RNA sequence: AUUUUCUGAAGAUGGAACAGGCAGCCAUCGCCCUUUGUUUGGAGAUGCGGGAGUGCCACCCCGCCUAAAGU
Numbered sequence: 001a002u003u004u005u006c007u008g009a010a011g012a013u014g015g016a017a018c019a020g021g022c023a024g025c026c027a028u029c030g031c032c033c034u035u036u037g038u039u040u041g042g043a044g045a046u047g048c049g050g051g052a053g054u055g056c057c058a059c060c061c062c063g064c065c066u067a068a069a070g071u
Stems, first nucleotide, its partner, number of pairs: 001071005008065001011029005020057004031042001047064005
Shown here is a 71-nucleotide RNA sequence from Planococcus lenghuensis, a member of the family "skipping-rope RNA". The family's consensus secondary structure is taken from published work. It is annotated as a small RNA.